The record is an 83-nucleotide RNA from Halalkalibacter suaedae, which matches "c-di-GMP-I riboswitch aptamer" in Rfam.
RNA sequence: UAAAUAUCAGGGCAAAUUUACUGAAAGGUAAAGACGCAAAGCCACGGAUCUAAGGUGAAAACUAUGAUAGCCGGGUUGCGGAU
Numbered sequence: 001u002a003a004a005u006a007u008c009a010g011g012g013c014a015a016a017u018u019u020a021c022u023g024a025a026a027g028g029u030a031a032a033g034a035c036g037c038a039a040a041g042c043c044a045c046g047g048a049u050c051u052a053a054g055g056u057g058a059a060a061a062c063u064a065u066g067a068u069a070g071c072c073g074g075g076u077u078g079c080g081g082a083u
Stems, first nucleotide, its partner, number of pairs: 012037002017032006040077004045073003048068003055062002
Dot-bracket structure: ...........((...((((((....))))))...))..((((.((((((....((....))...)))..)))))))......
About the family: GEMM was predicted in a large-scale screen for bacterial structured RNA regulatory elements. The organism belongs to Halalkalibacter, within Bacteria.